RNA: glmS glucosamine-6-phosphate activated ribozyme aptamer
RNA sequence: GUAUUAAGUCAAGCGCCAGGAUAAUUAAUCUCUGUGUAUUAUUAAAAAUAUAAAAAAUUUUACUUUUUUAAUGCAGAGUUUAUUAUUGACGAGGAUUGGAAUUAUCGAAAGACUCGGCGGGUAUUCCAAAGGCUUGUGGCAGUCUAAAAAUAUAUAACAAAAAGAAAUUUAUCUUUAUAAAUUUUAACAAAAAAUGUAUUGAGUCACUUC
Numbered sequence: 001g002u003a004u005u006a007a008g009u010c011a012a013g014c015g016c017c018a019g020g021a022u023a024a025u026u027a028a029u030c031u032c033u034g035u036g037u038a039u040u041a042u043u044a045a046a047a048a049u050a051u052a053a054a055a056a057a058u059u060u061u062a063c064u065u066u067u068u069u070a071a072u073g074c075a076g077a078g079u080u081u082a083u084u085a086u087u088g089a090c091g092a093g094g095a096u097u098g099g100a101a102u103u104a105u106c107g108a109a110a111g112a113c114u115c116g117g118c119g120g121g122u123a124u125u126c127c128a129a130a131g132g133c134u135u136g137u138g139g140c141a142g143u144c145u146a147a148a149a150a151u152a153u154a155u156a157a158c159a160a161a162a163a164g165a166a167a168u169u170u171a172u173c174u175u176u177a178u179a180a181a182u183u184u185u186a187a188c189a190a191a192a193a194a195u196g197u198a199u200u201g202a203g204u205c206a207c208u209u210c
Stems, first nucleotide, its partner, number of pairs: 020087006027080001029078001096129005105117004130145005149200007163185004168180001